RNA sequence: AAUGACAAAUAAUCUUACCCUCGUAUAUCAAUGGGAAUAUGGCCCAUAAGUUUCUACCCAAUGACCGUAAAUUAUUGGACUAUGAGGGAAAGUCAAUAUGUU
Numbered sequence: 001a002a003u004g005a006c007a008a009a010u011a012a013u014c015u016u017a018c019c020c021u022c023g024u025a026u027a028u029c030a031a032u033g034g035g036a037a038u039a040u041g042g043c044c045c046a047u048a049a050g051u052u053u054c055u056a057c058c059c060a061a062u063g064a065c066c067g068u069a070a071a072u073u074a075u076u077g078g079a080c081u082a083u084g085a086g087g088g089a090a091a092g093u094c095a096a097u098a099u100g101u102u
Stems, first nucleotide, its partner, number of pairs: 018088008031047005058078007
Dot-bracket structure: .................((((((((.....(((((.......)))))..........(((((((.......)))))))..))))))))..............
Overview
The family of this 102-nucleotide sequence from Bacillus sp. MUM 116 is "Purine riboswitch aptamer". The source organism's lineage runs through Bacteria, Bacillota, Bacilli, Caryophanales and Bacillus. The match comes from Rfam's covariance-model search (88 bits).